[Rfam]
RNA: Guanidine-I riboswitch aptamer
RNA sequence: GUGCAGGGCGUCUAGGGUUCCGUUUCCCGACCGGGAAAGCCAGGUCCGAGAGAUGCCGCCGGCGCGGCAAAUUCCGCGCCGGUACACGGCGGGCCAAAAUCCCGGGAGAG
Number, nucleotide and partner (000 for none) at each position: 001g000002u000003g000004c000005a000006g000007g057008g056009c055010g054011u053012c052013u000014a000015g047016g046017g000018u000019u000020c044021c043022g041023u038024u037025u036026c035027c034028c033029g000030a000031c000032c000033g028034g027035g026036a025037a024038a023039g000040c000041c022042a000043g021044g020045u000046c016047c015048g000049a000050g000051a000052g012053a011054u010055g009056c008057c007058g083059c082060c081061g080062g079063c078064g077065c076066g075067g074068c000069a000070a000071a000072u000073u000074c067075c066076g065077c064078g063079c062080c061081g060082g059083u058084a000085c105086a000087c108088g000089g000090c000091g103092g102093g101094c000095c000096a000097a000098a000099a000100u000101c093102c092103c091104g000105g085106g000107a000108g087109a000110g000